Shown here is an 85-nucleotide RNA from Chionoecetes opilio, a member of the family "Small nucleolar RNA snoR109". The literature on the family includes a 2002 paper in Curr Biol by Marker et al., "Experimental RNomics: identification of 140 candidates for small non-messenger RNAs in the plant Arabidopsis thaliana". The source organism's lineage runs through Eukaryota, Protostomia, Eumalacostraca, Majidae and Chionoecetes. Gene Ontology terms of the family: RNA processing and nucleolus. Pairs were carried over by alignment from the consensus structure, which was predicted with WAR. Rfam classes the family as an H/ACA-box small nucleolar RNA.
[Rfam]
RNA sequence: CGGCUGUUGCAGGAUUAAACAACACGCUAAAGAGCCUGUUCUUCUGCAUAAAGGAAAAUAAAAGCUUUCCGAGUGUGUCAAAUUG
Number, nucleotide and partner (000 for none) at each position: 001c000002g000003g000004c000005u000006g000007u000008u000009g000010c000011a000012g000013g000014a000015u000016u000017a000018a000019a000020c000021a000022a078023c077024a076025c075026g074027c073028u072029a000030a000031a000032g000033a066034g065035c064036c000037u062038g000039u060040u000041c000042u056043u055044c054045u000046g000047c000048a000049u000050a000051a000052a000053g000054g044055a043056a042057a000058a000059u000060a039061a000062a037063a000064g035065c034066u033067u000068u000069c000070c000071g000072a028073g027074u026075g025076u024077g023078u022079c000080a000081a000082a000083u000084u000085g000